[Rfam]
RNA: Lig 5' UTR thermometer
RNA sequence: AGAGAACCUCUACAAAAAUGAAUUUUAAAUUUGAGGAUAACCGCAAAACAACGAUUUGGUGCAAAAAUUUUUUGUGACAUCUGUAACAACUCACUUUGAUUGGAAAAAUUUUUGUAUGAGUUCCCACAAAUCCACCCUGAUGAAUUAUUUUGAGUUGACAGGAAAUCUGAUAUUGAGAAUUAGUAUCAAUAUCAUAACAACCAGUUCAUCGAAAAUU
Number, nucleotide and partner (000 for none) at each position: 001a000002g125003a000004g123005a122006a000007c120008c000009u118010c000011u116012a115013c114014a113015a112016a111017a110018a109019u108020g075021a000022a073023u000024u000025u000026u000027a000028a069029a068030u067031u066032u065033g000034a000035g062036g000037a000038u000039a000040a057041c000042c000043g000044c053045a000046a000047a000048a000049c000050a000051a000052c000053g044054a000055u000056u000057u040058g000059g000060u000061g000062c035063a000064a000065a032066a031067a030068u029069u028070u000071u000072u000073u022074g000075u020076g101077a000078c000079a000080u000081c000082u000083g000084u000085a000086a000087c000088a000089a000090c000091u000092c000093a000094c000095u000096u000097u000098g000099a000100u000101u076102g000103g000104a000105a000106a000107a000108a019109u018110u017111u016112u015113u014114g013115u012116a011117u000118g009119a000120g007121u000122u005123c004124c000125c002126a000127c000128a000129a000130a000131u000132c000133c000134a000135c000136c000137c000138u000139g000140a000141u000142g000143a000144a000145u000146u000147a000148u000149u000150u204151u203152g202153a000154g201155u200156u199157g198158a000159c000160a000161g000162g193163a190164a000165a000166u000167c000168u188169g187170a186171u185172a184173u000174u182175g181176a000177g000178a000179a000180u000181u175182a174183g000184u172185a171186u170187c169188a168189a000190u163191a000192u000193c162194a000195u000196a000197a000198c157199a156200a155201c154202c152203a151204g150205u000206u000207c000208a000209u000210c000211g000212a000213a000214a000215a000216u000217u000